[Rfam]
RNA sequence: CAACGUUCUCAGGGCGGGGUGCAAGUCCCCACCGGCGGUAAUUGCGCGUGCGCGCAUAGCCCGCGAGCGCCCGCCGCCAUGGCUGCGGGGUCAGCAGACCCGGUGCGAUUCCGGGGCCGACGGUCAUAGUCCGGAUGAAAGAGAGCGGGU
Numbered sequence: 001c002a003a004c005g006u007u008c009u010c011a012g013g014g015c016g017g018g019g020u021g022c023a024a025g026u027c028c029c030c031a032c033c034g035g036c037g038g039u040a041a042u043u044g045c046g047c048g049u050g051c052g053c054g055c056a057u058a059g060c061c062c063g064c065g066a067g068c069g070c071c072c073g074c075c076g077c078c079a080u081g082g083c084u085g086c087g088g089g090g091u092c093a094g095c096a097g098a099c100c101c102g103g104u105g106c107g108a109u110u111c112c113g114g115g116g117c118c119g120a121c122g123g124u125c126a127u128a129g130u131c132c133g134g135a136u137g138a139a140a141g142a143g144a145g146c147g148g149g150u
Base pairs, nucleotide, nucleotide: 004147005146006145007144008143009142010141017029018028019027031130032129033119034118035064036063037062038061059117060116067095068094099115100114101113102112103111121133122132123131
A member of the RNA family "FMN riboswitch aptamer (RFN element)" from Candidimonas nitroreducens, 150 nucleotides long. The source organism's lineage runs through Bacteria, Pseudomonadati, Betaproteobacteria, Alcaligenaceae and Candidimonas. It scores 110 bits against the family's covariance model.